[Rfam]
RNA sequence: CUCGGGGGAAGGGGGUCUCUCAGCCCAGAUUACAAGAGGGUGCAGGCCAGGCCGAGGAACCCCACUGGUGCUUG
Numbered sequence: 001c002u003c004g005g006g007g008g009a010a011g012g013g014g015g016u017c018u019c020u021c022a023g024c025c026c027a028g029a030u031u032a033c034a035a036g037a038g039g040g041u042g043c044a045g046g047c048c049a050g051g052c053c054g055a056g057g058a059a060c061c062c063c064a065c066u067g068g069u070g071c072u073u074g
Stems, first nucleotide, its partner, number of pairs: 004071001006069001009066001012063005018057004023052003028047001030045002033042002
Notes: Rfam assigns this 74-nucleotide RNA sequence from Myotis lucifugus to the family "mir-9193 microRNA precursor family". It scores 62 bits against the family's covariance model. Gene Ontology terms of the family: miRNA-mediated post-transcriptional gene silencing and RISC complex. NCBI's taxonomy places the organism under Eukaryota, Vertebrata, Eutheria, Laurasiatheria, Myotis.